[Rfam]
RNA sequence: UCCGCUGCCUCUGCCCUACUCCACAAAAUAGGGCAAGGGAGAACAAAAGGAGGAACAGUCAACCCGCUGAGCUUGCGGUGCGGCAGUGUGGAGACCUGCCGUAAUGCGGCGCGGCCCAGGGCCGGCCGUGAGUCUGCCGUGCGGAGGCAUUGCAGUCAAAGCUGUGAAGAUGGCA
Numbered sequence: 001u002c003c004g005c006u007g008c009c010u011c012u013g014c015c016c017u018a019c020u021c022c023a024c025a026a027a028a029u030a031g032g033g034c035a036a037g038g039g040a041g042a043a044c045a046a047a048a049g050g051a052g053g054a055a056c057a058g059u060c061a062a063c064c065c066g067c068u069g070a071g072c073u074u075g076c077g078g079u080g081c082g083g084c085a086g087u088g089u090g091g092a093g094a095c096c097u098g099c100c101g102u103a104a105u106g107c108g109g110c111g112c113g114g115c116c117c118a119g120g121g122c123c124g125g126c127c128g129u130g131a132g133u134c135u136g137c138c139g140u141g142c143g144g145a146g147g148c149a150u151u152g153c154a155g156u157c158a159a160a161g162c163u164g165u166g167a168a169g170a171u172g173g174c175a
Stems, first nucleotide, its partner, number of pairs: 008039003012035007064078004070163005079103008088095002106129005112124003132157001134155004139150004
RNA: malK-I RNA